Description: The family of this 86-nucleotide sequence from Flavobacterium croceum is "Flavo-1 RNA". The organism belongs to Flavobacterium croceum, within Bacteria. Pairs were carried over by alignment from the consensus structure, which is taken from published work. Rfam classes the family as a small RNA.
Nucleotides: 086
Stems, first nucleotide, its partner, number of pairs: 020078003024074002029069002034064003040059004045054001047052001
Number, partner (000 for none) and nucleotide at each position: 001000u002000u003000u004000u005000a006000c007000c008000u009000a010000g011000a012000u013000u014000g015000c016000g017000u018000g019000a020078g021077g022076g023000a024074u025073a026000g027000u028000a029069g030068u031000g032000g033000c034064a035063u036062c037000c038000u039000u040059u041058u042057a043056u044000g045054u046000a047052g048000c049000u050000u051000g052047c053000g054045g055000a056043g057042u058041a059040a060000a061000a062036g063035a064034u065000a066000c067000a068030g069029c070000g071000a072000a073025u074024a075000g076022c077021c078020c079000g080000a081000u082000c083000a084000a085000a086000a